[Rfam]
RNA sequence: CCAGGGGCUCGCGCCCCUGGCUACAACACUCUGCCCCUCCGGGGCA
Numbered sequence: 001c002c003a004g005g006g007g008c009u010c011g012c013g014c015c016c017c018u019g020g021c022u023a024c025a026a027c028a029c030u031c032u033g034c035c036c037c038u039c040c041g042g043g044g045c046a
Stems, first nucleotide, its partner, number of pairs: 001020008033045005
RNA: Acido-Lenti-1 RNA